[Rfam]
RNA: U1 spliceosomal RNA
Organism: Cucurbita maxima
RNA sequence: UUACUUACCUGGAUGAAAUCAAAAAAAUCAGAAAAUGUUACGGGUUGGUGACCACCAUUGCACGACGGAGGGGUGCCCGCCUAAGGUCUGCCCACGUGGCAGAGCCUACGUCAUGAUUUGUUGUAGUGGAGGCCUGCGUUCGCGCGGCCUUUAC
Numbered sequence: 001u002u003a004c005u006u007a008c009c010u011g012g013a014u015g016a017a018a019u020c021a022a023a024a025a026a027a028u029c030a031g032a033a034a035a036u037g038u039u040a041c042g043g044g045u046u047g048g049u050g051a052c053c054a055c056c057a058u059u060g061c062a063c064g065a066c067g068g069a070g071g072g073g074u075g076c077c078c079g080c081c082u083a084a085g086g087u088c089u090g091c092c093c094a095c096g097u098g099g100c101a102g103a104g105c106c107u108a109c110g111u112c113a114u115g116a117u118u119u120g121u122u123g124u125a126g127u128g129g130a131g132g133c134c135u136g137c138g139u140u141c142g143c144g145c146g147g148c149c150u151u152u153a154c
Stems, first nucleotide, its partner, number of pairs: 012112004018039001020037002042082003046079001048076003052072002055068002084107003087103003091099002127153005135146004